Notes: The record is a 54-nucleotide RNA from Phrynocephalus forsythii, which matches "Editing element of GABA-3 exon 9" in Rfam. The literature on the family includes a 2007 paper in RNA by Ohlson et al., "Editing modifies the GABA(A) receptor subunit alpha3".
RNA sequence: AAAGUGGCCUACGCUACGGCGAUGGAUUGGUUCAUCGCUGUGUGCUAUGCGUUU
Numbered sequence: 001a002a003a004g005u006g007g008c009c010u011a012c013g014c015u016a017c018g019g020c021g022a023u024g025g026a027u028u029g030g031u032u033c034a035u036c037g038c039u040g041u042g043u044g045c046u047a048u049g050c051g052u053u054u
Stems, first nucleotide, its partner, number of pairs: 001054003007050002010047002013045002015042006022035005
Dot-bracket structure: (((...((.((.((((((((.(((((....))))).)))))).)))).)).)))

The match comes from Rfam's covariance-model search (70 bits).